RNA: MIR2593 microRNA precursor family
RNA sequence: UUAUAAGCAAAAGUUUACAUUUUAGAUUCAUUCAUUUAAUGAUGCACAUGGUCUUUAUUAUAGACCACAUACAUCAUUAAAUGAAUGAACCUAGAAUAUAGUUUUUUGCUUAUAU
Numbered sequence: 001u002u003a004u005a006a007g008c009a010a011a012a013g014u015u016u017a018c019a020u021u022u023u024a025g026a027u028u029c030a031u032u033c034a035u036u037u038a039a040u041g042a043u044g045c046a047c048a049u050g051g052u053c054u055u056u057a058u059u060a061u062a063g064a065c066c067a068c069a070u071a072c073a074u075c076a077u078u079a080a081a082u083g084a085a086u087g088a089a090c091c092u093a094g095a096a097u098a099u100a101g102u103u104u105u106u107u108g109c110u111u112a113u114a115u
Base pairs, nucleotide, nucleotide: 002114003113004112005111006110007109009107010106011105012104013103015101016100017099019097020096021095022094023093024092025091027089028088029087030086031085032084033083034082035081036080037079038078039077040076041075042074043073044072049067050066051065052064